[Rfam]
RNA sequence: CCUCCCGUUCUUGGCGGGCCCCGGCGAUCCCGUGCCGAGGUCUGUGAUGUGCGGAGGGAAAGCAGCGCCCGGCGCGAAGUCUUCGGUGCCGGCGGUGGCGUCCGCCGGUCCCACCCUCACACGCCGGGACAGGC
Dot-bracket structure: (((((.........((((((.((((........)))).))))))........)))))............(((((..............(((((((......))))))).............)))))........
Source information
The family of this 134-nucleotide RNA from Smithornis capensis is "Small nucleolar RNA SNORA57". U99 belongs to the H/ACA class of snoRNAs which are thought to guide the sites of modification of uridines to pseudouridines, the target for this family is unknown. The family's RNA type in Rfam is H/ACA-box small nucleolar RNA. Taxonomically the source falls in Smithornis (Eukaryota, Metazoa, Eumetazoa, Telluraves). A search with the family's covariance model found it, with a score of 96 bits. Rfam links the family to the GO terms RNA processing and nucleolus.